The record is a 143-nucleotide sequence from Populus trichocarpa, which matches "MIR480 microRNA precursor family" in Rfam. The family has 69 seed sequences and 3,070 matches in Rfam 15.1. The family's consensus secondary structure was predicted with WAR. Gene Ontology terms of the family: miRNA-mediated post-transcriptional gene silencing and RISC complex. Lineage of the source: Eukaryota > Euphyllophyta > Magnoliopsida > Malpighiales > Populus.
RNA sequence: UAAUCUGUUUGGGGCAGAUCCUCAUUUAGUUAUGGCAGAACCACAUUUGACUACUCAGAAUCACUUGUUAUCACAAACUUGACUACAUCAUUGACAUUAAAAAACAUAGGACAACUAUUGUGUGAAUAUUGUUGAGCCGGCCA
Numbered sequence: 001u002a003a004u005c006u007g008u009u010u011g012g013g014g015c016a017g018a019u020c021c022u023c024a025u026u027u028a029g030u031u032a033u034g035g036c037a038g039a040a041c042c043a044c045a046u047u048u049g050a051c052u053a054c055u056c057a058g059a060a061u062c063a064c065u066u067g068u069u070a071u072c073a074c075a076a077a078c079u080u081g082a083c084u085a086c087a088u089c090a091u092u093g094a095c096a097u098u099a100a101a102a103a104a105c106a107u108a109g110g111a112c113a114a115c116u117a118u119u120g121u122g123u124g125a126a127u128a129u130u131g132u133u134g135a136g137c138c139g140g141c142c143a
Base pairs, nucleotide, nucleotide: 005140006139007138008136009135012132014130019125023122024121025120027117028116029115030114031113